[Rfam]
RNA sequence: AGGAUGAAACAGGGGUGCCCACUGGUUUUUUUGCUAGAGGCGCUGAGAAAGACCCUAUAACCCGAUCCAGGUAAUGCUGGCGUGGGGAGUUUUCCAUCAGACCGU
Numbered sequence: 001a002g003g004a005u006g007a008a009a010c011a012g013g014g015g016u017g018c019c020c021a022c023u024g025g026u027u028u029u030u031u032u033g034c035u036a037g038a039g040g041c042g043c044u045g046a047g048a049a050a051g052a053c054c055c056u057a058u059a060a061c062c063c064g065a066u067c068c069a070g071g072u073a074a075u076g077c078u079g080g081c082g083u084g085g086g087g088a089g090u091u092u093u094c095c096a097u098c099a100g101a102c103c104g105u
Stems, first nucleotide, its partner, number of pairs: 006093005011056004016050001017043002020040001061086004067080004
RNA: TPP riboswitch aptamer (THI element)